RNA sequence: GCCACGGCAAGGGUCACUCCCGAACUCCGGCCACCUUCACCGGCUGCCGUGGCGUCCAUUAAAGAGC
Numbered sequence: 001g002c003c004a005c006g007g008c009a010a011g012g013g014u015c016a017c018u019c020c021c022g023a024a025c026u027c028c029g030g031c032c033a034c035c036u037u038c039a040c041c042g043g044c045u046g047c048c049g050u051g052g053c054g055u056c057c058a059u060u061a062a063a064g065a066g067c
Base pairs, nucleotide, nucleotide: 001053002052003051004050005049006048007047008046011021012020013019027043028042029041030040035066036065037064